[Rfam]
RNA sequence: AGUAAAAAUUGGCAAACUUAAGGAAACUUAAGGACGCAAAGCUAUAGGGCCUUCUUUUGAUGGCAGCCUAGCUGCAAAA
Numbered sequence: 001a002g003u004a005a006a007a008a009u010u011g012g013c014a015a016a017c018u019u020a021a022g023g024a025a026a027c028u029u030a031a032g033g034a035c036g037c038a039a040a041g042c043u044a045u046a047g048g049g050c051c052u053u054c055u056u057u058u059g060a061u062g063g064c065a066g067c068c069u070a071g072c073u074g075c076a077a078a079a
Base pairs, nucleotide, nucleotide: 012037013036017032018031019030020029021028022027040073041072042071043070046069047068048067049064050063051062
A member of the RNA family "c-di-GMP-I riboswitch aptamer" from Tissierella sp. P1, 79 nucleotides long. The match comes from Rfam's covariance-model search (64 bits). Rfam links the family to the GO term cyclic-di-GMP binding.